[Rfam]
RNA sequence: CAGAGGACGGCCUCUGAUCCGGUAGAUUGCGCGGGACGGCCCGC
Numbered sequence: 001c002a003g004a005g006g007a008c009g010g011c012c013u014c015u016g017a018u019c020c021g022g023u024a025g026a027u028u029g030c031g032c033g034g035g036a037c038g039g040c041c042c043g044c
Base pairs, nucleotide, nucleotide: 001016002015003014004013005012006011031044032043033042034041035040
Shown here is a 44-nucleotide RNA from Gemmobacter aquatilis, a member of the family "Guanidine-II riboswitch aptamer (mini-ykkC)". A search with the family's covariance model found it, with a score of 34 bits. On this family, see Weinberg et al., Nucleic Acids Res 2007: "Identification of 22 candidate structured RNAs in bacteria using the CMfinder comparative genomics pipeline". Gene Ontology term of the family: regulation of gene expression.